[Rfam]
This 103-nucleotide RNA belongs to the Rfam family "L4-Archaeoglobi ribosomal protein leades". The sequence is in the family's curated seed alignment. Rfam classes the family as a cis-regulatory leader. The base pairs follow the family's consensus structure, which is taken from published work.

RNA sequence: CUGAGGAGCGCGUCCGGGUCAAUUGCGGCCUGCAACACCCGAUCUCCCUGCCGGUGCCUCCAGGAAUGGAGGUGCCGCGCGAGGGGGAACGCGUGACUAUCAG
Numbered sequence: 001c002u003g004a005g006g007a008g009c010g011c012g013u014c015c016g017g018g019u020c021a022a023u024u025g026c027g028g029c030c031u032g033c034a035a036c037a038c039c040c041g042a043u044c045u046c047c048c049u050g051c052c053g054g055u056g057c058c059u060c061c062a063g064g065a066a067u068g069g070a071g072g073u074g075c076c077g078c079g080c081g082a083g084g085g086g087g088a089a090c091g092c093g094u095g096a097c098u099a100u101c102a103g
Base pairs, nucleotide, nucleotide: 001103002102003101004100008094009093010092011091012090013089015041016040017039018038023035024034025033026032027031043088044087045086046085047084048083049082